[Rfam]
RNA sequence: UUGUGAAAAGGUGAUGGUGUUCCACCUAUUGAACCGCCCGCAACGGGCUGAUGACGCCUACGAACGU
Numbered sequence: 001u002u003g004u005g006a007a008a009a010g011g012u013g014a015u016g017g018u019g020u021u022c023c024a025c026c027u028a029u030u031g032a033a034c035c036g037c038c039c040g041c042a043a044c045g046g047g048c049u050g051a052u053g054a055c056g057c058c059u060a061c062g063a064a065c066g067u
Stems, first nucleotide, its partner, number of pairs: 010026004016058006036048004
The record is a 67-nucleotide RNA from Siphonobacter aquaeclarae, which matches "Fluoride riboswitch aptamer (crcB RNA motif)" in Rfam. The source organism's lineage runs through Bacteria, Pseudomonadati, Cytophagales, Cytophagaceae and Siphonobacter. The family's consensus secondary structure is taken from published work.